RNA anti-toxin A: an 89-nucleotide sequence from Listeria grayi. Rfam classes the family as an antitoxin RNA.
[Rfam]
RNA sequence: UACUAACAAUGAAAAGAGAGCUAUGCGUCAACAUAGCCCUCGUGCAAACACCAUUUAAGAUGGUGACAGCCAUGUUAGAUUAUUAUAAA
Numbered sequence: 001u002a003c004u005a006a007c008a009a010u011g012a013a014a015a016g017a018g019a020g021c022u023a024u025g026c027g028u029c030a031a032c033a034u035a036g037c038c039c040u041c042g043u044g045c046a047a048a049c050a051c052c053a054u055u056u057a058a059g060a061u062g063g064u065g066a067c068a069g070c071c072a073u074g075u076u077a078g079a080u081u082a083u084u085a086u087a088a089a
Stems, first nucleotide, its partner, number of pairs: 022035004050064006

NCBI's taxonomy places the organism under Bacteria, Bacilli, Caryophanales, Listeria, Listeria grayi. The base pairs follow the family's consensus structure, which was predicted with RNAalifold.